Background:
Shown here is a 77-nucleotide sequence from Ameiurus melas, a member of the family "Small nucleolar RNA SNORD111". The family's RNA type in Rfam is C/D-box small nucleolar RNA.

[Rfam]
RNA sequence: GAUACAGAAAUGAUGAUAUACCUUCAUGUCUCUUCUCUGACAAAUGCUGAAGAGAAUGUUGAUAUCUGACUUGAAUC
Numbered sequence: 001g002a003u004a005c006a007g008a009a010a011u012g013a014u015g016a017u018a019u020a021c022c023u024u025c026a027u028g029u030c031u032c033u034u035c036u037c038u039g040a041c042a043a044a045u046g047c048u049g050a051a052g053a054g055a056a057u058g059u060u061g062a063u064a065u066c067u068g069a070c071u072u073g074a075a076u077c
Stems, first nucleotide, its partner, number of pairs: 001077003005073001

Overview:
Rfam links the family to the GO terms RNA processing and nucleolus. On this family, see Galardi et al., Mol Cell Biol 2002: "Purified box C/D snoRNPs are able to reproduce site-specific 2'-O-methylation of target RNA in vitro".